[Rfam]
RNA sequence: UGCCUAACCCCUAUGUGAAAGCGUAGGGUAUGGCAUAAAAGCGCUAUGAACAUAAAGAUCCCAUCAUCAGGGACGUUCAUAGCGUCAUACAGGGAAACCUGUGUGUAAGUCGCAAGGCUU
Dot-bracket structure: ((((....(((((((......)))))))...))))......((((((((((.....(.((((.......))))))))))))))).((((((((....)))))))).(((((....)))))
Numbered sequence: 001u002g003c004c005u006a007a008c009c010c011c012u013a014u015g016u017g018a019a020a021g022c023g024u025a026g027g028g029u030a031u032g033g034c035a036u037a038a039a040a041g042c043g044c045u046a047u048g049a050a051c052a053u054a055a056a057g058a059u060c061c062c063a064u065c066a067u068c069a070g071g072g073a074c075g076u077u078c079a080u081a082g083c084g085u086c087a088u089a090c091a092g093g094g095a096a097a098c099c100u101g102u103g104u105g106u107a108a109g110u111c112g113c114a115a116g117g118c119u120u
Stems, first nucleotide, its partner, number of pairs: 001035004009028007042084010057074001059073004086105008107120005
This 120-nucleotide RNA belongs to the Rfam family "LOOT RNA".